This 114-nucleotide sequence from Curtobacterium sp. ISL-83 belongs to the Rfam family "ALIL pseudoknot". The match comes from Rfam's covariance-model search (87 bits).
[Rfam]
RNA sequence: GGCUUUCUUCGCGGCGGAGCUCGACCGCCCGUCCAGCAGAUGAUCACAUUCAUCGACGUCCACAAGCAUGAGUUCGGGGUCGAGCCGGUCUGCCGCACGUUGCAGGUCGCCCCG
Numbered sequence: 001g002g003c004u005u006u007c008u009u010c011g012c013g014g015c016g017g018a019g020c021u022c023g024a025c026c027g028c029c030c031g032u033c034c035a036g037c038a039g040a041u042g043a044u045c046a047c048a049u050u051c052a053u054c055g056a057c058g059u060c061c062a063c064a065a066g067c068a069u070g071a072g073u074u075c076g077g078g079g080u081c082g083a084g085c086c087g088g089u090c091u092g093c094c095g096c097a098c099g100u101u102g103c104a105g106g107u108c109g110c111c112c113c114g
Stems, first nucleotide, its partner, number of pairs: 013029005075114005086109002089106005095100001
On this family, see Mazauric et al., J Biol Chem 2008: "Apical loop-internal loop RNA pseudoknots: a new type of stimulator of -1 translational frameshifting in bacteria". The family's RNA type in Rfam is cis-regulatory element. NCBI's taxonomy places the organism under Bacteria, Bacillati, Micrococcales, Microbacteriaceae, Curtobacterium.